[Rfam]
RNA sequence: AGGUGCCAUCGUUCGCUGAGGCUCCUUCACGGAAACACGCCAGCGACCCCAAACGUCCAGAGACGCCACGGGUCAGGACAGGCCUUCCCGGCUUAAGGGUUGGCCCCGAUUGGCUCCUCGGCUCACGCCGAGGUCGACGCCGUGUAGUGCCAAAGGUCUUACGAGGAAGGCGUAC
Dot-bracket structure: ....(((.(((([.(((..(((..((.(((((......(((((.(((((....((((....))))....)))))......((((..(((......])))..))))....))))).(((((........)))))......))))).)).)))...)))...))...)).)))....
The record is a 175-nucleotide RNA sequence from Williamsia sp. Leaf354, which matches "M-box riboswitch aptamer (ykoK leader)" in Rfam. The literature on the family includes a 2004 paper in Proc Natl Acad Sci U S A by Barrick et al., "New RNA motifs suggest an expanded scope for riboswitches in bacterial genetic control". The family has 159 seed sequences and 1,095 matches in Rfam 15.1. Taxonomically the source falls in Williamsia (Bacteria, Actinomycetota, Actinomycetes, Mycobacteriales).